Rfam assigns this 116-nucleotide sequence from Brachypodium distachyon to the family "MIR9486 microRNA precursor family". The family's consensus secondary structure was predicted with RNAalifold. Lineage of the source: Eukaryota > Embryophyta > Stipodae > Brachypodieae > Brachypodium.
RNA sequence: UAAAAAGUGGAACCUCUGGCCACUUAAAUGUAUCUUAGGAAAUAAAAACCUAAAGAAUCCUACCUCAGGCGGGUUUUUCGUAAAAUACUUUUAAGUGAUUAGAGGUUCCAGUUUUC
Numbered sequence: 001u002a003a004a005a006a007g008u009g010g011a012a013c014c015u016c017u018g019g020c021c022a023c024u025u026a027a028a029u030g031u032a033u034c035u036u037a038g039g040a041a042a043u044a045a046a047a048a049c050c051u052a053a054a055g056a057a058u059c060c061u062a063c064c065u066c067a068g069g070c071g072g073g074u075u076u077u078u079c080g081u082a083a084a085a086u087a088c089u090u091u092u093a094a095g096u097g098a099u100u101a102g103a104g105g106u107u108c109c110a111g112u113u114u115u116c
Stems, first nucleotide, its partner, number of pairs: 003115004008110012021097008030088004035083003039079004049069003